[Rfam]
RNA: Small nucleolar RNA SNORD16
Organism: Acipenser ruthenus
RNA sequence: UGCUAUGAUGGUGUAAUUUGCGUCUGACCUUGUGGACAGUGACAGUUGCCUGCUGUCUAUAUGCUGGCACAGGCGGGUGACGAUCAUUCUUUUUCUGAGCA
Numbered sequence: 001u002g003c004u005a006u007g008a009u010g011g012u013g014u015a016a017u018u019u020g021c022g023u024c025u026g027a028c029c030u031u032g033u034g035g036a037c038a039g040u041g042a043c044a045g046u047u048g049c050c051u052g053c054u055g056u057c058u059a060u061a062u063g064c065u066g067g068c069a070c071a072g073g074c075g076g077g078u079g080a081c082g083a084u085c086a087u088u089c090u091u092u093u094u095c096u097g098a099g100c101a
Stems, first nucleotide, its partner, number of pairs: 001101003021082004030072005039064002041057005